[Rfam]
Nucleotides: 124
Stems, first nucleotide, its partner, number of pairs: 001123004
Number, partner (000 for none) and nucleotide at each position: 001123u002122c003121c004120c005000a006000g007000u008000g009000a010000a011000g012000a013000g014000g015000c016000a017000u018000u019000c020000a021000u022000g023000g024000g025000u026000u027000u028000u029000a030000c031000u032000u033000c034000c035000u036000g037000u038000c039000c040000c041000a042000g043000c044000c045000a046000g047000a048000g049000c050000c051000c052000u053000a054000u055000a056000g057000g058000g059000u060000g061000a062000a063000c064000u065000c066000a067000u068000u069000c070000a071000a072000g073000c074000u075000g076000g077000u078000u079000g080000c081000g082000g083000g084000a085000c086000a087000a088000g089000a090000g091000g092000a093000a094000a095000a096000u097000u098000u099000g100000u101000u102000c103000c104000a105000a106000a107000a108000a109000u110000a111000g112000c113000u114000g115000u116000g117000a118000g119000a120004g121003g122002g123001g124000u